[Rfam]
Shown here is a 171-nucleotide sequence from Anaerofilum hominis, a member of the family "Lysine riboswitch aptamer". Riboswitches are metabolite binding domains within certain messenger RNAs that serve as precision sensors for their corresponding targets. Allosteric rearrangement of mRNA structure is mediated by ligand binding, and this results in modulation of gene expression. It scores 83 bits against the family's covariance model. The organism belongs to Anaerofilum, within Bacteria.

RNA sequence: AAAGUUGAUAGAGGCGCGGCGCGGAUGAGUAACCGGCAGAGGGGGCACCCUGGGAAGCCGGCAAAAGGCCAAACCGCCGAAACGGACCGCCGGGCACGGCGGCUCAGUUGGGCAUGGGGAGAAGAUCUCCAUGACUCCUGCCCCUUUAAGGGCAGAGGAGCUAUCGGUGAU
Numbered sequence: 001a002a003a004g005u006u007g008a009u010a011g012a013g014g015c016g017c018g019g020c021g022c023g024g025a026u027g028a029g030u031a032a033c034c035g036g037c038a039g040a041g042g043g044g045g046c047a048c049c050c051u052g053g054g055a056a057g058c059c060g061g062c063a064a065a066a067g068g069c070c071a072a073a074c075c076g077c078c079g080a081a082a083c084g085g086a087c088c089g090c091c092g093g094g095c096a097c098g099g100c101g102g103c104u105c106a107g108u109u110g111g112g113c114a115u116g117g118g119g120a121g122a123a124g125a126u127c128u129c130c131a132u133g134a135c136u137c138c139u140g141c142c143c144c145u146u147u148a149a150g151g152g153c154a155g156a157g158g159a160g161c162u163a164u165c166g167g168u169g170a171u
Stems, first nucleotide, its partner, number of pairs: 006166006016077004023070002033061005081109003085105002087102006110136002113133008138155006